[Rfam]
RNA sequence: CGGUGUGAGGAGGCCGUACGUUUGCAGAGCAAUGGCAGAAUAUGCUGCAUAGCUUGCGACCCCACUACACGGC
Numbered sequence: 001c002g003g004u005g006u007g008a009g010g011a012g013g014c015c016g017u018a019c020g021u022u023u024g025c026a027g028a029g030c031a032a033u034g035g036c037a038g039a040a041u042a043u044g045c046u047g048c049a050u051a052g053c054u055u056g057c058g059a060c061c062c063c064a065c066u067a068c069a070c071g072g073c
Base pairs, nucleotide, nucleotide: 003070004069005068006067007066010063012061013060015058016057017056018055020053021052023049024048025047026046
Shown here is a 73-nucleotide RNA sequence from Ornithorhynchus anatinus, a member of the family "mir-1421 microRNA precursor family". The family's consensus secondary structure was predicted with RNAalifold. Gene Ontology terms of the family: miRNA-mediated post-transcriptional gene silencing and RISC complex.